[Rfam]
RNA sequence: GUGCGGUGCGUCUAGGGUUCCGGCGCUUCCCUCGGGAAGCGUGACUGGUCCGAGAGACGCAUGCUCCACCGGUGGUGGGGUUACACGGCGGGCCAAAAUCCCGGGAGAA
Numbered sequence: 001g002u003g004c005g006g007u008g009c010g011u012c013u014a015g016g017g018u019u020c021c022g023g024c025g026c027u028u029c030c031c032u033c034g035g036g037a038a039g040c041g042u043g044a045c046u047g048g049u050c051c052g053a054g055a056g057a058c059g060c061a062u063g064c065u066c067c068a069c070c071g072g073u074g075g076u077g078g079g080g081u082u083a084c085a086c087g088g089c090g091g092g093c094c095a096a097a098a099u100c101c102c103g104g105g106a107g108a109a
Stems, first nucleotide, its partner, number of pairs: 007061006015051002020048002022045001023042006063081007084104001086107001090102003
The family of this 109-nucleotide RNA from Acuticoccus sediminis is "Guanidine-I riboswitch aptamer". The base pairs follow the family's consensus structure. Lineage of the source: Bacteria > Alphaproteobacteria > Hyphomicrobiales > Amorphaceae > Acuticoccus.